[Rfam]
RNA: ROOL RNA
RNA sequence: GAUUUUGAACAAUCUACUGAAUAACCAAGUGUAGAUAGGGUGACACCUUGCUUGGAUUGCGUACAUAAUUCCCGUUACACUUCCCGUGAGAUAUUGCGGGAAGAUAAGUAAUUCUCUUUUGAGCGAUCGAAAGAGGUCAUGAAGUGUAAGAAGAUUGAGGGUGUAUGCAGUAUAGAGGUUGUGCGUAAUUAGACCAUUAUCAGACGGUGGCGGUGACAAUAGACGCUUUCGGUGAAAGAAUAAUCUGGGUAGGCCUUGCGUAGCAGUAAGAACUGAACCAGAAAUGCUAAAUUAAACCGUUUUGCACUUGAGGUCGAGGGAUCGGCCAAUAACACCAAAGAUAAGUACAAGUAGCCCAAAAUGUGCAGAAAAUUUGCAAGAUAUAUUGUGCUAAAAUAUUAUUCUGAAUGUCGGGUGAAAGUUGGACGUAACCAGUCGUGCCUAGUCAUUUAAUCGCUACGGAAGUUAUAGGGUCGCUCCUUGUAGCUCAGACCGUGGUAGGCUAUCGGUCAAUAAAUUGCGUACAAUCGAAGUAGAGCGAAGGCUCAUUUAGUUGAUUGUUUAAAG
Numbered sequence: 001g002a003u004u005u006u007g008a009a010c011a012a013u014c015u016a017c018u019g020a021a022u023a024a025c026c027a028a029g030u031g032u033a034g035a036u037a038g039g040g041u042g043a044c045a046c047c048u049u050g051c052u053u054g055g056a057u058u059g060c061g062u063a064c065a066u067a068a069u070u071c072c073c074g075u076u077a078c079a080c081u082u083c084c085c086g087u088g089a090g091a092u093a094u095u096g097c098g099g100g101a102a103g104a105u106a107a108g109u110a111a112u113u114c115u116c117u118u119u120u121g122a123g124c125g126a127u128c129g130a131a132a133g134a135g136g137u138c139a140u141g142a143a144g145u146g147u148a149a150g151a152a153g154a155u156u157g158a159g160g161g162u163g164u165a166u167g168c169a170g171u172a173u174a175g176a177g178g179u180u181g182u183g184c185g186u187a188a189u190u191a192g193a194c195c196a197u198u199a200u201c202a203g204a205c206g207g208u209g210g211c212g213g214u215g216a217c218a219a220u221a222g223a224c225g226c227u228u229u230c231g232g233u234g235a236a237a238g239a240a241u242a243a244u245c246u247g248g249g250u251a252g253g254c255c256u257u258g259c260g261u262a263g264c265a266g267u268a269a270g271a272a273c274u275g276a277a278c279c280a281g282a283a284a285u286g287c288u289a290a291a292u293u294a295a296a297c298c299g300u301u302u303u304g305c306a307c308u309u310g311a312g313g314u315c316g317a318g319g320g321a322u323c324g325g326c327c328a329a330u331a332a333c334a335c336c337a338a339a340g341a342u343a344a345g346u347a348c349a350a351g352u353a354g355c356c357c358a359a360a361a362u363g364u365g366c367a368g369a370a371a372a373u374u375u376g377c378a379a380g381a382u383a384u385a386u387u388g389u390g391c392u393a394a395a396a397u398a399u400u401a402u403u404c405u406g407a408a409u410g411u412c413g414g415g416u417g418a419a420a421g422u423u424g425g426a427c428g429u430a431a432c433c434a435g436u437c438g439u440g441c442c443u444a445g446u447c448a449u450u451u452a453a454u455c456g457c458u459a460c461g462g463a464a465g466u467u468a469u470a471g472g473g474u475c476g477c478u479c480c481u482u483g484u485a486g487c488u489c490a491g492a493c494c495g496u497g498g499u500a501g502g503c504u505a506u507c508g509g510u511c512a513a514u515a516a517a518u519u520g521c522g523u524a525c526a527a528u529c530g531a532a533g534u535a536g537a538g539c540g541a542a543g544g545c546u547c548a549u550u551u552a553g554u555u556g557a558u559u560g561u562u563u564a565a566a567g
Stems, first nucleotide, its partner, number of pairs: 008563002012559001015556002018553001020551002025055005037048003057170006074112005081102009113136010138146003178529001180527001188519001190517001195509001197344004206336004210300005226238004244282005255270005261289004303367005313326005348421001354416004359411001403492004425441001443505003455502001458498001462494001465488001467485007536547004